[Rfam]
Purine riboswitch aptamer: a 101-nucleotide RNA from Alkalithermobacter paradoxus. Taxonomically the source falls in Alkalithermobacter (Bacteria, Bacillati, Bacillota, Tepidibacteraceae). It scores 72 bits against the family's covariance model. The base pairs follow the family's consensus structure, which is taken from published work.
RNA sequence: AAUAUUUAAUAUAUGAGUUAUCUGUAUAGUCCUAAUGAUAUGGUUUAGGAGUUUCUACAAAAUGCCGUAAACAUUUUACUACGAUAAAGAGAGGGAUAUGU
Numbered sequence: 001a002a003u004a005u006u007u008a009a010u011a012u013a014u015g016a017g018u019u020a021u022c023u024g025u026a027u028a029g030u031c032c033u034a035a036u037g038a039u040a041u042g043g044u045u046u047a048g049g050a051g052u053u054u055c056u057a058c059a060a061a062a063u064g065c066c067g068u069a070a071a072c073a074u075u076u077u078a079c080u081a082c083g084a085u086a087a088a089g090a091g092a093g094g095g096a097u098a099u100g101u
Base pairs, nucleotide, nucleotide: 018087019086020085021084022083024082025081026080030050031049032048033047034046035045059077060076061075062074063073064072
Dot-bracket structure: .................(((((.(((...((((((.........))))))........((((((.......))))))..))))))))..............